[Rfam]
RNA: Rhodo-rpoB RNA
RNA sequence: AGAUCGGGAGGCGCGCGGUGGGACGUGUGCCGGGAAUUGAUCGGGUUCGUGUCGUCUCUAUUGGGCAGACCGCCGGGGCCCGACGGUGGAAUG
Numbered sequence: 001a002g003a004u005c006g007g008g009a010g011g012c013g014c015g016c017g018g019u020g021g022g023a024c025g026u027g028u029g030c031c032g033g034g035a036a037u038u039g040a041u042c043g044g045g046u047u048c049g050u051g052u053c054g055u056c057u058c059u060a061u062u063g064g065g066c067a068g069a070c071c072g073c074c075g076g077g078g079c080c081c082g083a084c085g086g087u088g089g090a091a092u093g
Stems, first nucleotide, its partner, number of pairs: 002042004010031008066093002070089006